[Rfam]
PyrR binding site: a 117-nucleotide sequence from Fonticella tunisiensis. The source organism's lineage runs through Bacteria, Bacillati, Bacillota, Clostridia and Fonticella. Rfam's curators write: This family represents the PyrR binding site and terminator structure. This RNA structure is found upstream of a variety of genes involved in pyrimidine biosynthesis and transport. The alignment also includes a portion of the antiterminator structure. The match comes from Rfam's covariance-model search (56 bits). A reference for the family is Bonner et al. (2001), "Molecular recognition of pyr mRNA by the Bacillus subtilis attenuation regulatory protein PyrR", Nucleic Acids Res.
RNA sequence: AUAACCUUUAAAUCAGUCCAGAGAGGCUGUAAGGAGCUAAACUUAUAAGAUUGCUGCAAAUAUCUUUUGGGUAUAUUAUGCUUCUUACACCUUUCAUGGAUGUGAGAAGCUUUUUUA
Numbered sequence: 001a002u003a004a005c006c007u008u009u010a011a012a013u014c015a016g017u018c019c020a021g022a023g024a025g026g027c028u029g030u031a032a033g034g035a036g037c038u039a040a041a042c043u044u045a046u047a048a049g050a051u052u053g054c055u056g057c058a059a060a061u062a063u064c065u066u067u068u069g070g071g072u073a074u075a076u077u078a079u080g081c082u083u084c085u086u087a088c089a090c091c092u093u094u095c096a097u098g099g100a101u102g103u104g105a106g107a108a109g110c111u112u113u114u115u116u117a
Stems, first nucleotide, its partner, number of pairs: 005034004014029005038075002041072005047066005078112001080110010091099001